Shown here is a 77-nucleotide RNA sequence from Geotalea daltonii, a member of the family "c-di-GMP-I riboswitch aptamer".
[Rfam]
RNA sequence: UAACGAUAAUACUAAACCAUUCGCGAGAAUGGGGCGGAAAGCCUAUAGGGUCUCAAGCAGACAGCCGGGUUGCCGAA
Numbered sequence: 001u002a003a004c005g006a007u008a009a010u011a012c013u014a015a016a017c018c019a020u021u022c023g024c025g026a027g028a029a030u031g032g033g034g035c036g037g038a039a040a041g042c043c044u045a046u047a048g049g050g051u052c053u054c055a056a057g058c059a060g061a062c063a064g065c066c067g068g069g070u071u072g073c074c075g076a077a
Base pairs, nucleotide, nucleotide: 012037013036017032018031019030020029021028022027040071041070042069043068048066049065050062051061052060
Gene Ontology term of the family: cyclic-di-GMP binding. The base pairs follow the family's consensus structure, which is taken from published work. Rfam's curators put it in the seed alignment. The source organism's lineage runs through Bacteria, Desulfuromonadia, Geobacterales, Geotalea and Geotalea daltonii.